[Rfam]
Shown here is a 261-nucleotide RNA sequence from bacterium 1xD8-6, a member of the family "T-box leader". The base pairs follow the family's consensus structure, which is taken from published work. By type it is a cis-regulatory leader. Gene Ontology term of the family: tRNA binding. Rfam's curators write: Uncharged tRNA acts as the effector for transcription antitermination of genes in the T-box leader family.
RNA sequence: UUAAAUACGAAGAAAAGAAUAAGUAGUAGCAGGGAAAGCCAACAGAAAGCAGCCGGAGGAUGAGAGGCGCAGGCGGAAACUGGUAUGAAUACAUCUUGGAGUAUCAGGCUGAACAGGAUUUUCCCAGUAGGCUUUGGCGGUGAUGCACCCGUUAUCGUGCAGGGAUAUAUUAGUACAAUGUGUAUUAGAGUGUCCUGAUAAGGCAUUCUGCGUGAGCAGGGUGUAAAUAAAGGUGGUAACACGAGUGAUUUCGUCCUUUUG
Numbered sequence: 001u002u003a004a005a006u007a008c009g010a011a012g013a014a015a016a017g018a019a020u021a022a023g024u025a026g027u028a029g030c031a032g033g034g035a036a037a038g039c040c041a042a043c044a045g046a047a048a049g050c051a052g053c054c055g056g057a058g059g060a061u062g063a064g065a066g067g068c069g070c071a072g073g074c075g076g077a078a079a080c081u082g083g084u085a086u087g088a089a090u091a092c093a094u095c096u097u098g099g100a101g102u103a104u105c106a107g108g109c110u111g112a113a114c115a116g117g118a119u120u121u122u123c124c125c126a127g128u129a130g131g132c133u134u135u136g137g138c139g140g141u142g143a144u145g146c147a148c149c150c151g152u153u154a155u156c157g158u159g160c161a162g163g164g165a166u167a168u169a170u171u172a173g174u175a176c177a178a179u180g181u182g183u184a185u186u187a188g189a190g191u192g193u194c195c196u197g198a199u200a201a202g203g204c205a206u207u208c209u210g211c212g213u214g215a216g217c218a219g220g221g222u223g224u225a226a227a228u229a230a231a232g233g234u235g236g237u238a239a240c241a242c243g244a245g246u247g248a249u250u251u252c253g254u255c256c257u258u259u260u261g
Base pairs, nucleotide, nucleotide: 007102008101015097016096017095018094026086027085028084030082031081038074039073040072049070050069052068053067054066105136106135107133108132109131110130138151139150140149193221194220195219196218197217230258231257232256233255241254242253243252244251245250